[Rfam]
Description: FMN riboswitch aptamer (RFN element): a 175-nucleotide RNA sequence from Actinoplanes italicus.
RNA sequence: ACGCGCUGGCGGGACUCGGUGAAAUUCCGAACCGGCGGUGAUCCGACGCUUCUCGUGUCGGUAAGCCCGCGACCCGAUCGUCCGACAGGACGAGCGGUGGACCUGGUGAGACUCCAGGGCCGACGGUUGAGCGGCAGUGAUGCCGUUCAGACAGUCCGGAUGGGAGACAGCGCGC
Numbered sequence: 001a002c003g004c005g006c007u008g009g010c011g012g013g014a015c016u017c018g019g020u021g022a023a024a025u026u027c028c029g030a031a032c033c034g035g036c037g038g039u040g041a042u043c044c045g046a047c048g049c050u051u052c053u054c055g056u057g058u059c060g061g062u063a064a065g066c067c068c069g070c071g072a073c074c075c076g077a078u079c080g081u082c083c084g085a086c087a088g089g090a091c092g093a094g095c096g097g098u099g100g101a102c103c104u105g106g107u108g109a110g111a112c113u114c115c116a117g118g119g120c121c122g123a124c125g126g127u128u129g130a131g132c133g134g135c136a137g138u139g140a141u142g143c144c145g146u147u148c149a150g151a152c153a154g155u156c157c158g159g160a161u162g163g164g165a166g167a168c169a170g171c172g173c174g175c
Stems, first nucleotide, its partner, number of pairs: 003173006010166001017029003033122002035070004065120002074097002102118005124158003
The match comes from Rfam's covariance-model search (86 bits).